[Rfam]
RNA sequence: CGAAAAAAAAGCCUGCAGCGAUUGCUGCAGGCAUCUUUAAUCGAACCAGUCGACUAAAGAUAAAGGGAGAGGAGAAACCGGAGGAAGAACUUAUGGGGAAACGUAAGUCUUCUCCGUUU
Numbered sequence: 001c002g003a004a005a006a007a008a009a010a011g012c013c014u015g016c017a018g019c020g021a022u023u024g025c026u027g028c029a030g031g032c033a034u035c036u037u038u039a040a041u042c043g044a045a046c047c048a049g050u051c052g053a054c055u056a057a058a059g060a061u062a063a064a065g066g067g068a069g070a071g072g073a074g075a076a077a078c079c080g081g082a083g084g085a086a087g088a089a090c091u092u093a094u095g096g097g098g099a100a101a102c103g104u105a106a107g108u109c110u111u112c113u114c115c116g117u118u119u
Stems, first nucleotide, its partner, number of pairs: 011032009034066004039055001041053004079116004084112004089108005
Dot-bracket structure: ..........(((((((((....))))))))).((((.(.((((.....)))).).......))))............((((.((((.(((((..........)))))))))))))...